[Rfam]
The family of this 136-nucleotide RNA sequence from Tetracentron sinense is "small nucleolar RNA snoR137". The base pairs follow the family's consensus structure, which was predicted with RNAalifold. Rfam 15.1 lists 808 matches to the family in 221 species. Gene Ontology terms of the family: nucleolus and RNA processing. A reference for the family is Chen and Wu (2009), "Mining small RNA sequencing data: a new approach to identify small nucleolar RNAs in Arabidopsis", Nucleic Acids Res. The source organism's lineage runs through Eukaryota, Viridiplantae, Streptophyta, Embryophyta and Tetracentron. It scores 67 bits against the family's covariance model.
RNA sequence: GUUGCUUCUUUACUAGUGGAGUGACUUUUUUGUUAAUGCAGUCAUUCAUAGUGAGAAGCAUAUAAGAAAAUACUGCCAGUUUUAAACAGCAUGAUGUUCUUCUUUUGCAUUGUGUUACCUGUCUGCUGGCAAAUUU
Numbered sequence: 001g002u003u004g005c006u007u008c009u010u011u012a013c014u015a016g017u018g019g020a021g022u023g024a025c026u027u028u029u030u031u032g033u034u035a036a037u038g039c040a041g042u043c044a045u046u047c048a049u050a051g052u053g054a055g056a057a058g059c060a061u062a063u064a065a066g067a068a069a070a071u072a073c074u075g076c077c078a079g080u081u082u083u084a085a086a087c088a089g090c091a092u093g094a095u096g097u098u099c100u101u102c103u104u105u106u107g108c109a110u111u112g113u114g115u116u117a118c119c120u121g122u123c124u125g126c127u128g129g130c131a132a133a134u135u136u
Stems, first nucleotide, its partner, number of pairs: 003060006017048004022044005075130006088116003092112005